Notes
A member of the RNA family "Neisseria metabolic switch regulator b (RcoF1/NgncR163)" from Neisseria sp. oral taxon 014, 89 nucleotides long. The match comes from Rfam's covariance-model search (72 bits). The literature on the family includes a 2017 paper in Microbiology by Bauer et al., "The sibling sRNAs NgncR_162 and NgncR_163 of Neisseria gonorrhoeae participate in the expression control of metabolic, transport and regulatory proteins". Rfam describes the family as follows. Sibling sRNA described and independently named in three publications. Rfam links the family to the GO terms protein binding, regulation of translation, ncRNA-mediated and tricarboxylic acid cycle.
RNA sequence: CCGUUGAGUUGCUUAAGUGCAGCUUGAUUUUUCUCCUCUAUUUCUCCUUUGUAGACUUGGCGCAUAUCCGUUUGGGUGUGCGUCGUUUU
Dot-bracket structure: ..(((((((((........)))))))))........(((((.........)))))....((((((((((....))))))))))......

The family has 6 seed sequences and 65 matches in Rfam 15.1. By type it is a small RNA. The source organism's lineage runs through Bacteria, Pseudomonadati, Neisseriales, Neisseria and Neisseria sp. oral taxon 014.